Shown here is a 126-nucleotide RNA from Arabidopsis lyrata, a member of the family "MIR168 microRNA precursor family". Pairs were carried over by alignment from the consensus structure, which was predicted with WAR. The literature on the family includes a 2002 paper in Genes Dev by Reinhart et al., "MicroRNAs in plants". A search with the family's covariance model found it, with a score of 111 bits. The family has 10 seed sequences and 518 matches in Rfam 15.1.
RNA sequence: UUACCGGCGGUCUCGGAUUCGCUUGGUGCAGGUCGGGAACUGAUUAGCUGACAAUUACACGUGUGUUGUCAUGGUUGGUUUGUGAGAUCCCGUCUUGUAUCAACUGAAUCGGAGUCCGAGGUGAAA
Numbered sequence: 001u002u003a004c005c006g007g008c009g010g011u012c013u014c015g016g017a018u019u020c021g022c023u024u025g026g027u028g029c030a031g032g033u034c035g036g037g038a039a040c041u042g043a044u045u046a047g048c049u050g051a052c053a054a055u056u057a058c059a060c061g062u063g064u065g066u067u068g069u070c071a072u073g074g075u076u077g078g079u080u081u082g083u084g085a086g087a088u089c090c091c092g093u094c095u096u097g098u099a100u101c102a103a104c105u106g107a108a109u110c111g112g113a114g115u116c117c118g119a120g121g122u123g124a125a126a
Stems, first nucleotide, its partner, number of pairs: 013113002017109004023103010034092005040086002